This 272-nucleotide RNA sequence from Brassica rapa belongs to the Rfam family "TeloSII non coding RNA 33". Rfam describes the family as follows. Located downstream of the TeloSII elements. These elements have been shown to coordinate the expression of protein-coding gene related to ribosome biogenesis throughout the cell cycle in Arabidopsis. The family's consensus secondary structure was predicted with RNAfold. A search with the family's covariance model found it, with a score of 174 bits.
RNA sequence: GUGGUGGUCUCCAGCCAAGUUCUGAGUACAAAAAGCUAACUCUCUCAUUCAUUUAUUUACAGGAAAUCAGAUGCCAAUAAACCCACACCUAAGUGUUUAAUUCAAAUCACACCCAAAAUACUACGGUUAUAAAACAAGAAGAUUCUUACAGAAUUUCAAUUUAUUUUAUAAAACUAGAGAAGCCUCCUCCUGAAGUUUCUGGUAGUUGAUUGAUAAGUACGUACGAGAAGACCGACACCAAUCCCAAUACCAACACAUGCACCAAGUCCAAU
Numbered sequence: 001g002u003g004g005u006g007g008u009c010u011c012c013a014g015c016c017a018a019g020u021u022c023u024g025a026g027u028a029c030a031a032a033a034a035g036c037u038a039a040c041u042c043u044c045u046c047a048u049u050c051a052u053u054u055a056u057u058u059a060c061a062g063g064a065a066a067u068c069a070g071a072u073g074c075c076a077a078u079a080a081a082c083c084c085a086c087a088c089c090u091a092a093g094u095g096u097u098u099a100a101u102u103c104a105a106a107u108c109a110c111a112c113c114c115a116a117a118a119u120a121c122u123a124c125g126g127u128u129a130u131a132a133a134a135c136a137a138g139a140a141g142a143u144u145c146u147u148a149c150a151g152a153a154u155u156u157c158a159a160u161u162u163a164u165u166u167u168a169u170a171a172a173a174c175u176a177g178a179g180a181a182g183c184c185u186c187c188u189c190c191u192g193a194a195g196u197u198u199c200u201g202g203u204a205g206u207u208g209a210u211u212g213a214u215a216a217g218u219a220c221g222u223a224c225g226a227g228a229a230g231a232c233c234g235a236c237a238c239c240a241a242u243c244c245c246a247a248u249a250c251c252a253a254c255a256c257a258u259g260c261a262c263c264a265a266g267u268c269c270a271a272u
Base pairs, nucleotide, nucleotide: 012192013191014190023059024058025057026056027055028054030052034043090129091128092127094125095124096123100119101118102117138189139188141186142185145182146181147180156178157177159175195263197261198259200257201256202254203253205250206249208243209242210241211240212239217236218235220234221233224230